RNA sequence: CCAAAGGCUCUUUUAAGAGCCACCCACAGACUCUUAAGAGCUCCUU
Numbered sequence: 001c002c003a004a005a006g007g008c009u010c011u012u013u014u015a016a017g018a019g020c021c022a023c024c025c026a027c028a029g030a031c032u033c034u035u036a037a038g039a040g041c042u043c044c045u046u
Base pairs, nucleotide, nucleotide: 006021007020008019009018010017011016
Source information:
A member of the RNA family "Histone 3' UTR stem-loop" from Etheostoma spectabile, 46 nucleotides long. NCBI's taxonomy places the organism under Eukaryota, Ctenosquamata, Percoidei, Percidae, Oligocephalus. The family's consensus secondary structure is taken from published work. Rfam links the family to the GO term mRNA 3'-end processing by stem-loop binding and cleavage.